[Rfam]
RNA sequence: AUAAAAGCAGGGUCCUGUUGCCUUGUAUGUGAAUUGGUCUCUCGUAAACGUCAGGGAAAUGAAAUAAAUUGCAACAUUAUUGGGUGAACCUCUGUUUGUUCUUUGUGAAUGGUGGCUCAAGGUUCAGUAAAUGAUGCAACAUUU
Numbered sequence: 001a002u003a004a005a006a007g008c009a010g011g012g013u014c015c016u017g018u019u020g021c022c023u024u025g026u027a028u029g030u031g032a033a034u035u036g037g038u039c040u041c042u043c044g045u046a047a048a049c050g051u052c053a054g055g056g057a058a059a060u061g062a063a064a065u066a067a068a069u070u071g072c073a074a075c076a077u078u079a080u081u082g083g084g085u086g087a088a089c090c091u092c093u094g095u096u097u098g099u100u101c102u103u104u105g106u107g108a109a110u111g112g113u114g115g116c117u118c119a120a121g122g123u124u125c126a127g128u129a130a131a132u133g134a135u136g137c138a139a140c141a142u143u144u
Stems, first nucleotide, its partner, number of pairs: 005051001007049001011040002014037002017034003070138004075133004085126007

Notes
A member of the RNA family "Small nucleolar RNA snoR74" from Rosa chinensis, 144 nucleotides long. Lineage of the source: Eukaryota > Streptophyta > Gunneridae > Pentapetalae > Rosa. It scores 96 bits against the family's covariance model.